[Rfam]
mir-320 microRNA precursor family: a 76-nucleotide sequence from Propithecus coquereli. The literature on the family includes a 2006 paper in Genome Res by Berezikov et al., "Many novel mammalian microRNA candidates identified by extensive cloning and RAKE analysis". The base pairs follow the family's consensus structure, which was predicted with RNAalifold. The family has 38 seed sequences and 659 matches in Rfam 15.1. The organism belongs to Propithecus, within Eukaryota.
RNA sequence: AAAAAAUAGGGCUUUCUCUUCCCGGUUCUUCCCGGAGUUGGGAAAAGCUGGGUUGAGAAGGUGAAAAAAAAAAAAA
Numbered sequence: 001a002a003a004a005a006a007u008a009g010g011g012c013u014u015u016c017u018c019u020u021c022c023c024g025g026u027u028c029u030u031c032c033c034g035g036a037g038u039u040g041g042g043a044a045a046a047g048c049u050g051g052g053u054u055g056a057g058a059a060g061g062u063g064a065a066a067a068a069a070a071a072a073a074a075a076a
Stems, first nucleotide, its partner, number of pairs: 014059005021052005029044006